Background
The family of this 215-nucleotide sequence from Pseudoxanthobacter soli is "permuted transfer-messenger RNA". It is annotated as a non-coding RNA gene. Its family is annotated with RNA catabolic process in the Gene Ontology.
[Rfam]
Nucleotides: 215
Base pairs, nucleotide, nucleotide: 001138002137003136004135005134014128015127016126017125026117027116028115030114031113032112036052037051038050039049040048053099054098055097056096057095058094059093060092061091062090139154140153141152142151
Number, partner (000 for none) and nucleotide at each position: 001138g002137g003136c004135g005134a006000u007000a008000a009000a010000c011000g012000g013000u014128c015127g016126a017125c018000g019000u020000a021000a022000u023000a024000a025000g026117c027116u028115c029000a030114u031113c032112g033000g034000a035000c036052c037051c038050g039049g040048g041000g042000g043000c044000g045000g046000u047000a048040c049039c050038c051037g052036g053099c054098g055097c056096c057095u058094c059093c060092a061091c062090c063000u064000g065000a066000g067000c068000c069000c070000g071000c072000u073000u074000c075000g076000g077000a078000c079000a080000a081000g082000c083000g084000g085000g086000u087000u088000g089000a090062g091061g092060u093059g094058g095057g096056g097055g098054c099053g100000a101000a102000a103000u104000a105000g106000g107000a108000u109000c110000g111000a112032c113031g114030a115028g116027a117026g118000u119000g120000u121000a122000a123000a124000g125017g126016u127015c128014g129000u130000g131000c132000u133000u134005u135004c136003g137002c138001c139154c140153g141152g142151c143000a144000u145000g146000g147000u148000a149000c150000c151142g152141c153140c154139g155000u156000u157000a158000u159000c160000g161000g162000a163000c164000c165000a166000a167000a168000c169000c170000u171000a172000u173000a174000g175000u176000u177000g178000c179000c180000a181000a182000u183000g184000a185000c186000a187000a188000c189000u190000a191000u192000g193000c194000u195000g196000a197000g198000g199000c200000u201000c202000g203000c204000c205000u206000c207000g208000c209000c210000g211000c212000g213000u214000g215000a